[Rfam]
RNA sequence: GGAAAUUUGAGAAGAGCUAUCCUUAGUACGAGAGGACCGGGAUGGACGCACCGCUGGUGUACCAGUUGUUCUGCCAAGGGCAUCGCUGGGUAGCUAUGUGCGGGAUGGAUAAGCGCUGAAAGCAUCUAAGCGUGAAGCCAGCUUCAAGAUGAGAUUUCCCAUUCGAAAGAAGUAAGACCCCUGAGAGACGAUCAGGUAGAUAGGCUAGAAGUGGAAGUGGAGUGAUCCAUGGAGCGGACUAGUACUAAUCGGUCGAGGUCUU
Numbered sequence: 001g002g003a004a005a006u007u008u009g010a011g012a013a014g015a016g017c018u019a020u021c022c023u024u025a026g027u028a029c030g031a032g033a034g035g036a037c038c039g040g041g042a043u044g045g046a047c048g049c050a051c052c053g054c055u056g057g058u059g060u061a062c063c064a065g066u067u068g069u070u071c072u073g074c075c076a077a078g079g080g081c082a083u084c085g086c087u088g089g090g091u092a093g094c095u096a097u098g099u100g101c102g103g104g105a106u107g108g109a110u111a112a113g114c115g116c117u118g119a120a121a122g123c124a125u126c127u128a129a130g131c132g133u134g135a136a137g138c139c140a141g142c143u144u145c146a147a148g149a150u151g152a153g154a155u156u157u158c159c160c161a162u163u164c165g166a167a168a169g170a171a172g173u174a175a176g177a178c179c180c181c182u183g184a185g186a187g188a189c190g191a192u193c194a195g196g197u198a199g200a201u202a203g204g205c206u207a208g209a210a211g212u213g214g215a216a217g218u219g220g221a222g223u224g225a226u227c228c229a230u231g232g233a234g235c236g237g238a239c240u241a242g243u244a245c246u247a248a249u250c251g252g253u254c255g256a257g258g259u260c261u262u
Base pairs, nucleotide, nucleotide: 001159002158003157004156005155006154007153008152011145012144013143014142017045018044019043020042021041022040023039047102048101049100050099051098055096056095057094062089063088064087065086066085067082068081069080070079071078106140107139108138113133114132115131116130117129176254177253178252179251180196181195182194183193184192201247202246203245204243205242206241207240208239211235217230218229219228220227221226
RNA: Archaeal large subunit ribosomal RNA, nucleotides 2214 to 2475
Organism: Abiotrophia defectiva